[Rfam]
RNA: S15-Halobacteria ribosomal protein leader
RNA sequence: AGUGGGAACGCACGGCCGCAAAUCUGACAUCGCCGUCCGCUUGGACGGCUUGGGAUUGCGGAAGUGU
Number, nucleotide and partner (000 for none) at each position: 001a000002g000003u000004g000005g000006g000007a000008a000009c000010g067011c066012a065013c064014g000015g000016c061017c060018g059019c058020a057021a056022a000023u000024c054025u053026g000027a000028c000029a000030u000031c000032g049033c048034c047035g046036u045037c044038c043039g000040c000041u000042u000043g038044g037045a036046c035047g034048g033049c032050u000051u000052g000053g025054g024055a000056u021057u020058g019059c018060g017061g016062a000063a000064g013065u012066g011067u010